[Rfam]
RNA sequence: CUGUUCGGGGAAUGAUGUAUUACCAUAGGGCUCUCAAGAUGCUUGCCUUUCUCGAUUCUGCAUCUGAAGUGGAUAUAAGAAAGG
Numbered sequence: 001c002u003g004u005u006c007g008g009g010g011a012a013u014g015a016u017g018u019a020u021u022a023c024c025a026u027a028g029g030g031c032u033c034u035c036a037a038g039a040u041g042c043u044u045g046c047c048u049u050u051c052u053c054g055a056u057u058c059u060g061c062a063u064c065u066g067a068a069g070u071g072g073a074u075a076u077a078a079g080a081a082a083g084g
Base pairs, nucleotide, nucleotide: 001084002083004081005080006079